[Rfam]
RNA sequence: GAGUCAGCCAAUGAAUCUGCUUCCCUGAAAGUGUUUCUGCAGAAAUUUUUAAAAAGCUGGUAAUAGUAAAGUCAUGUUAUGAGCCUUAAGGACAGUGAAGUUGUUAAGGUCCCUGAAAAUGGCUAUAACA
Numbered sequence: 001g002a003g004u005c006a007g008c009c010a011a012u013g014a015a016u017c018u019g020c021u022u023c024c025c026u027g028a029a030a031g032u033g034u035u036u037c038u039g040c041a042g043a044a045a046u047u048u049u050u051a052a053a054a055a056g057c058u059g060g061u062a063a064u065a066g067u068a069a070a071g072u073c074a075u076g077u078u079a080u081g082a083g084c085c086u087u088a089a090g091g092a093c094a095g096u097g098a099a100g101u102u103g104u105u106a107a108g109g110u111c112c113c114u115g116a117a118a119a120u121g122g123c124u125a126u127a128a129c130a
Stems, first nucleotide, its partner, number of pairs: 003061005016043005071123004083110007091102003
The record is a 130-nucleotide RNA from Prolemur simus, which matches "Small nucleolar RNA SNORA33" in Rfam. The family has 28 seed sequences and 1,176 matches in Rfam 15.1. Pairs were carried over by alignment from the consensus structure, which was predicted with PFOLD. The match comes from Rfam's covariance-model search (138 bits). Rfam describes the family as follows. ACA33 is a member of the H/ACA class of snoRNA that guide the sites of modification of uridines to pseudouridines. Rfam links the family to the GO terms RNA processing and nucleolus.